[Rfam]
RNA sequence: AGGUACUCCCGAGUCUCGCCACAGAUGGCGGCGAUAGGGAUAACGGCUGGUUGGCACAGCCAGCGGUUCACCUGUUCGACCGUAGUGAGGGCUGUUUCGCCCCACGAGCACAGGCUGCUAACCGCGAACUGUAAUAUCCCAACUCAGCGGUGCGGUGCCGUGGGAUUCCCGCGUCUUCAGGCGCGGGA
Numbered sequence: 001a002g003g004u005a006c007u008c009c010c011g012a013g014u015c016u017c018g019c020c021a022c023a024g025a026u027g028g029c030g031g032c033g034a035u036a037g038g039g040a041u042a043a044c045g046g047c048u049g050g051u052u053g054g055c056a057c058a059g060c061c062a063g064c065g066g067u068u069c070a071c072c073u074g075u076u077c078g079a080c081c082g083u084a085g086u087g088a089g090g091g092c093u094g095u096u097u098c099g100c101c102c103c104a105c106g107a108g109c110a111c112a113g114g115c116u117g118c119u120a121a122c123c124g125c126g127a128a129c130u131g132u133a134a135u136a137u138c139c140c141a142a143c144u145c146a147g148c149g150g151u152g153c154g155g156u157g158c159c160g161u162g163g164g165a166u167u168c169c170c171g172c173g174u175c176u177u178c179a180g181g182c183g184c185g186g187g188a
Stems, first nucleotide, its partner, number of pairs: 003044002007040004013035003016031006045061005064124005069117001071114005077108001089102004137165004167188009